[Rfam]
RNA sequence: GUUCCCAAUGAUGCUUUCCUUUUUACCAUGCUAAUGCUGAUGACAUGAUUGUUACUUCUAUUGUACUGAGGGAACU
Number, nucleotide and partner (000 for none) at each position: 001g075002u074003u073004c072005c071006c000007a000008a000009u000010g000011a000012u000013g000014c000015u000016u000017u000018c000019c000020u000021u000022u000023u000024u000025a000026c000027c000028a000029u000030g000031c000032u000033a000034a000035u000036g000037c000038u000039g000040a000041u000042g000043a000044c000045a000046u000047g000048a000049u000050u000051g000052u000053u000054a000055c000056u000057u000058c000059u000060a000061u000062u000063g000064u000065a000066c000067u000068g000069a000070g000071g005072g004073a003074a002075c001076u000
Notes:
A member of the RNA family "Small nucleolar RNA snoR53Y" from Phaseolus vulgaris, 76 nucleotides long. It is annotated as a C/D-box small nucleolar RNA. The organism belongs to Phaseolus, within Eukaryota. Its family is annotated with nucleolus and RNA processing in the Gene Ontology. A search with the family's covariance model found it, with a score of 62 bits. The literature on the family includes a 2001 paper in RNA by Brown et al., "Multiple snoRNA gene clusters from Arabidopsis".